[Rfam]
RNA sequence: CCGGCAGUUGCCUGUUGAUCCGCCGCAAUUAUGAUGGACGAAUCACAGUCAACUGUUGGCA
Numbered sequence: 001c002c003g004g005c006a007g008u009u010g011c012c013u014g015u016u017g018a019u020c021c022g023c024c025g026c027a028a029u030u031a032u033g034a035u036g037g038a039c040g041a042a043u044c045a046c047a048g049u050c051a052a053c054u055g056u057u058g059g060c061a
Base pairs, nucleotide, nucleotide: 001059002058004056005055006054007053008052009051010050012048013047016045017044018043019042021040022039023037024036025035
Rfam assigns this 61-nucleotide sequence from Caenorhabditis brenneri to the family "mir-250 microRNA precursor family". The family's consensus secondary structure was predicted with RNAalifold. Taxonomically the source falls in Caenorhabditis (Eukaryota, Opisthokonta, Bilateria, Peloderinae). Its family is annotated with miRNA-mediated post-transcriptional gene silencing and RISC complex in the Gene Ontology. The sequence is in the family's curated seed alignment.